[Rfam]
RNA: Small nucleolar RNA SNORD63
Nucleotides: 069
Stems, first nucleotide, its partner, number of pairs: 001068004
Number, partner (000 for none) and nucleotide at each position: 001068g002067u003066g004065c005000u006000a007000u008000g009000a010000u011000g012000u013000c014000a015000a016000u017000u018000g019000u020000c021000a022000c023000a024000u025000c026000a027000u028000u029000c030000u031000g032000a033000a034000g035000a036000a037000g038000g039000a040000u041000u042000g043000u044000g045000u046000g047000g048000a049000g050000c051000c052000c053000u054000u055000c056000u057000g058000g059000g060000a061000c062000u063000g064000a065004g066003c067002a068001c069000c